[Rfam]
RNA sequence: GAAUAACAUUGUUUUGUUAUCCUCAGUCAAUAACACAAUGAUAUGUGGAAAAGUUAUCCUACGUGUUAUUGCGUUAUUGGCUGGAAAUAGCAAAAAGUGUUAUCC
Number, nucleotide and partner (000 for none) at each position: 001g000002a000003a103004u102005a101006a000007c000008a000009u000010u000011g000012u095013u094014u093015u092016g091017u090018u089019a088020u087021c000022c000023u084024c083025a082026g081027u080028c079029a078030a077031u076032a075033a074034c073035a000036c071037a070038a069039u068040g067041a066042u065043a064044u063045g062046u061047g060048g059049a000050a057051a000052a000053g000054u000055u000056a000057u050058c000059c048060u047061a046062c045063g044064u043065g042066u041067u040068a039069u038070u037071g036072c000073g034074u033075u032076a031077u030078u029079g028080g027081c026082u025083g024084g023085a000086a000087a020088u019089a018090g017091c016092a015093a014094a013095a012096a000097g000098u000099g000100u000101u005102a004103u003104c000105c000
Annotation
Rfam assigns this 105-nucleotide RNA from Prunus armeniaca to the family "MIR6274 microRNA precursor family". Its family is annotated with RISC complex and miRNA-mediated post-transcriptional gene silencing in the Gene Ontology. A search with the family's covariance model found it, with a score of 80 bits.